RNA sequence: AUAGAUAAAAGGCAAAAUCGUUGAAAAGCGAUGACGCAAAGCCACAGGCCUAAGAUGAGUUUCAUUACGGCGGCUGGGUUGCAGAU
Number, nucleotide and partner (000 for none) at each position: 001a000002u000003a000004g000005a000006u000007a000008a000009a000010a000011g000012g037013c036014a000015a000016a000017a032018u031019c030020g029021u028022u027023g000024a000025a000026a000027a022028g021029c020030g019031a018032u017033g000034a000035c000036g013037c012038a000039a000040a080041g079042c078043c077044a000045c076046a075047g074048g071049c070050c069051u000052a000053a000054g000055a065056u064057g063058a062059g000060u000061u000062u058063c057064a056065u055066u000067a000068c000069g050070g049071c048072g000073g000074c047075u046076g045077g043078g042079u041080u040081g000082c000083a000084g000085a000086u000
RNA: c-di-GMP-I riboswitch aptamer